[Rfam]
About this RNA:
Rfam assigns this 54-nucleotide RNA from Salmo trutta to the family "UnaL2 LINE 3' element". NCBI's taxonomy places the organism under Eukaryota, Chordata, Teleostei, Salmoniformes, Salmo. The eel long interspersed element (LINE) UnaL2 and its partner short interspersed element (SINE) share a conserved 3' tail containing a stem-loop that is critical for their retrotransposition. Presumably, the first step of retrotransposition is the recognition of their 3' tails by UnaL2-encoded reverse transcriptase. The solution structure of a 17-nucleotide RNA derived from the 3' tail of UnaL2 was determined by NMR. The family's consensus secondary structure is taken from published work. By type it is a cis-regulatory element.

RNA sequence: GAAAUGUAUGCAUGUAAGUCGCUCUGGAUAAGAGCAUCUGCUAAAUGACUAAAA
Numbered sequence: 001g002a003a004a005u006g007u008a009u010g011c012a013u014g015u016a017a018g019u020c021g022c023u024c025u026g027g028a029u030a031a032g033a034g035c036a037u038c039u040g041c042u043a044a045a046u047g048a049c050u051a052a053a054a
Base pairs, nucleotide, nucleotide: 013043014041015040016039021035022034023033024032025031